The record is a 76-nucleotide RNA sequence from Podarcis lilfordi, which matches "mir-219 microRNA precursor family" in Rfam. A search with the family's covariance model found it, with a score of 75 bits. Rfam 15.1 lists 1,318 matches to the family in 774 species. Rfam links the family to the GO terms miRNA-mediated post-transcriptional gene silencing and RISC complex.
[Rfam]
RNA sequence: UUUGCUUCUGAUUGUCCAAACGCAAUUCUUGUUCAGGAAUACUAACCAAGAAUUGUGUCUGGACAUCUGUGGCCGA
Numbered sequence: 001u002u003u004g005c006u007u008c009u010g011a012u013u014g015u016c017c018a019a020a021c022g023c024a025a026u027u028c029u030u031g032u033u034c035a036g037g038a039a040u041a042c043u044a045a046c047c048a049a050g051a052a053u054u055g056u057g058u059c060u061g062g063a064c065a066u067c068u069g070u071g072g073c074c075g076a
Stems, first nucleotide, its partner, number of pairs: 002075001004073003010067003014064005021057011